[Rfam]
Nucleotides: 225
Stems, first nucleotide, its partner, number of pairs: 001225004008218003016191001022059005035049005068208005077169004087101005102117005118165007139150003
Number, partner (000 for none) and nucleotide at each position: 001225g002224u003223u004222g005000g006000c007000c008218g009217g010216a011000a012000g013000a014000c015000g016191g017000c018000a019000c020000a021000g022059g023058g024057g025056g026055a027000u028000g029000a030000c031000u032000c033000a034000c035049a036048g037047g038046c039045c040000g041000a042000a043000a044000u045039g046038g047037u048036c049035u050000c051000g052000a053000c054000g055026u056025c057024c058023u059022c060000g061000g062000g063000a064000a065000g066000g067000u068208c069207u070206g071205a072204g073000a074000a075000a076000a077169g078168g079167u080166c081000c082000a083000a084000g085000u086000g087101g088100g089099u090098u091097c092000c093000a094000g095000g096000a097091g098090a099089a100088c101087c102117u103116c104115g105114c106113c107000c108000u109000c110000g111000u112000c113106g114105g115104c116103g117102a118165g119164c120163g121162g122161u123160u124159g125000u126000a127000c128000c129000a130000g131000a132000a133000a134000a135000g136000g137000u138000c139150c140149u141148c142000g143000g144000a145000a146000a147000c148141g149140a150139g151000u152000u153000g154000g155000a156000a157000c158000a159124c160123a161122g162121c163120c164119g165118c166080g167079a168078c169077c170000a171000g172000c173000g174000a175000c176000g177000c178000u179000u180000a181000g182000u183000g184000c185000g186000a187000u188000u189000g190000c191016c192000a193000c194000a195000c196000c197000a198000a199000c200000a201000c202000a203000a204072u205071u206070c207069a208068g209000a210000c211000u212000a213000g214000u215000c216010u217009c218008u219000g220000g221000c222004c223003a224002a225001c
Nuclear RNase P: a 225-nucleotide sequence from Caenorhabditis auriculariae. The organism belongs to Caenorhabditis, within Eukaryota. It scores 115 bits against the family's covariance model. Its family is annotated with tRNA processing, ribonuclease P activity and ribonuclease P complex in the Gene Ontology. Pairs were carried over by alignment from the consensus structure, which is taken from published work. It is annotated as a ribozyme.